[Rfam]
RNA sequence: UGAGCCAGCUGGGUAAACGCGAGGGCACCGAACUGCCCUGCUUAACGCAGGGAAAGCGGUCCUUCGAGGAAAGUCCGGACUCCAUAGAGCACGGUGGUUGCUAACAGCAACCCGGGGCAACCCGCGGGAAAGUGCAACAGAAAGCAGACCGCCCAGCGCGCUGGGUAAGGGUGAAACGGUGCGUUAAGAGCGCACCAGCACCGUCAGUGAUGGCGGUGGCUGGGUAAACCCCACCGGGAGCAAGGCAAAAGGGUCCGCCACGGCGCGGACCGGAUCAGGCGCUAGUAGGCUGCUCGUCGAAGCCUGGAGGUAGCUGCUGGAACCCACCGGCGACGGUGGGUCUAGAUGGAUGUUUACCGGCCCGCGCACUGUGUGCGGGUGUCACAGAAUCCGGCUUAUAGGCUGACUCAUUCG
Number, nucleotide and partner (000 for none) at each position: 001u410002g409003a408004g407005c000006c405007a404008g403009c402010u401011g399012g358013g357014u356015a355016a354017a353018c352019g000020c066021g065022a064023g063024g062025g061026c000027a000028c058029c000030g000031a000032a000033c000034u000035g000036c000037c000038c000039u000040g000041c000042u000043u000044a000045a000046c000047g000048c000049a000050g000051g000052g000053a000054a000055a000056g000057c000058g028059g000060u000061c025062c024063u023064u022065c021066g020067a000068g000069g000070a000071a397072a396073g395074u000075c394076c393077g392078g391079a390080c240081u239082c238083c237084a000085u000086a000087g295088a294089g293090c292091a000092c236093g235094g234095u233096g232097g111098u110099u109100g108101c107102u000103a000104a000105c000106a000107g101108c100109a099110a098111c097112c126113c124114g123115g122116g121117g000118c000119a000120a000121c116122c115123c114124g113125c000126g112127g231128g230129a000130a000131a000132g229133u228134g225135c224136a000137a000138c000139a000140g000141a000142a000143a000144g000145c000146a000147g000148a000149c170150c169151g166152c165153c164154c163155a162156g161157c000158g000159c000160g000161c156162u155163g154164g153165g152166u151167a000168a000169g150170g149171g000172u000173g000174a000175a000176a000177c000178g196179g195180u194181g193182c192183g191184u000185u000186a000187a000188g000189a000190g000191c183192g182193c181194a180195c179196c178197a000198g220199c218200a217201c216202c215203g214204u213205c212206a211207g000208u000209g000210a000211u206212g205213g204214c203215g202216g201217u200218g199219g000220c198221u000222g000223g000224g135225u134226a000227a000228a133229c132230c128231c127232c096233a095234c094235c093236g092237g083238g082239a081240g080241c000242a000243a000244g315245g314246c313247a000248a000249a000250a000251g000252g000253g000254u000255c000256c000257g000258c000259c000260a000261c000262g000263g000264c000265g000266c000267g000268g000269a000270c000271c000272g000273g000274a000275u307276c306277a305278g304279g303280c302281g000282c000283u000284a000285g000286u300287a000288g298289g297290c296291u000292g090293c089294u088295c087296g290297u289298c288299g000300a286301a000302g280303c279304c278305u277306g276307g275308a000309g000310g000311u000312a000313g246314c245315u244316g000317c000318u000319g000320g000321a000322a341323c340324c339325c338326a337327c336328c335329g334330g000331c000332g000333a000334c329335g328336g327337u326338g325339g324340g323341u322342c000343u000344a000345g000346a000347u000348g000349g000350a000351u000352g018353u017354u016355u015356a014357c013358c012359g000360g000361c000362c000363c000364g000365c000366g000367c000368a000369c000370u000371g000372u000373g000374u000375g000376c000377g000378g000379g000380u000381g000382u000383c000384a000385c000386a000387g000388a000389a000390u079391c078392c077393g076394g075395c073396u072397u071398a000399u011400a000401g010402g009403c008404u007405g006406a000407c004408u003409c002410a001411u000412u000413c000414g000